This 82-nucleotide RNA sequence from Caenorhabditis brenneri belongs to the Rfam family "mir-232 microRNA precursor family".
Rfam 15.1 lists 11 matches to the family in 8 species.
It scores 96 bits against the family's covariance model.
The literature on the family includes a 2009 paper in Genome Res by de Wit et al., "Repertoire and evolution of miRNA genes in four divergent nematode species".
RNA sequence: UUUCGGAUCCCCGUAGUUUCGAUCAUUUUAUCCUGCCCAACUCAAAAAGUGAUAAAUGCAUCUUAACUGCGGUGAUCUGAUU
Numbered sequence: 001u002u003u004c005g006g007a008u009c010c011c012c013g014u015a016g017u018u019u020c021g022a023u024c025a026u027u028u029u030a031u032c033c034u035g036c037c038c039a040a041c042u043c044a045a046a047a048a049g050u051g052a053u054a055a056a057u058g059c060a061u062c063u064u065a066a067c068u069g070c071g072g073u074g075a076u077c078u079g080a081u082u
Stems, first nucleotide, its partner, number of pairs: 003080007011072008021062003027056006033049002